[Rfam]
RNA: mir-296 microRNA precursor family
RNA sequence: AAGACCCUUCUAGAGGGCCCCUCCUCAAUCCUGUUGUACUAGAUCCAGAGGGUUGGGCGGAGGCUCUCCUGAAGGCCUC
Numbered sequence: 001a002a003g004a005c006c007c008u009u010c011u012a013g014a015g016g017g018c019c020c021c022u023c024c025u026c027a028a029u030c031c032u033g034u035u036g037u038a039c040u041a042g043a044u045c046c047a048g049a050g051g052g053u054u055g056g057g058c059g060g061a062g063g064c065u066c067u068c069c070u071g072a073a074g075g076c077c078u079c
Stems, first nucleotide, its partner, number of pairs: 006075005013068007021060002023057002026055007034048003